[Rfam]
RNA sequence: UAAAUACACCAUAAGUACAGUAGUGCCCCAUCCUGGAGCUACUUUACCAUAUUCGGAAUUA
Numbered sequence: 001u002a003a004a005u006a007c008a009c010c011a012u013a014a015g016u017a018c019a020g021u022a023g024u025g026c027c028c029c030a031u032c033c034u035g036g037a038g039c040u041a042c043u044u045u046a047c048c049a050u051a052u053u054c055g056g057a058a059u060u061a
Stems, first nucleotide, its partner, number of pairs: 017045001019043006026036002
The family of this 61-nucleotide RNA from Closterium sp. NIES-68 is "Plastid-psbN 5UTR RNA". Plastid psbN is a non-coding RNA (ncRNA) recognised in plastids. It was reported as a conserved 11 stem-loop in the prime untranslated region (5UTR) of psbN genes. It has been reported that the motif is retained in a subset of mature transcripts in barley, which can suggests a possible role in transcript alternative 5 prime processing. It scores 54 bits against the family's covariance model. It is annotated as a cis-regulatory element.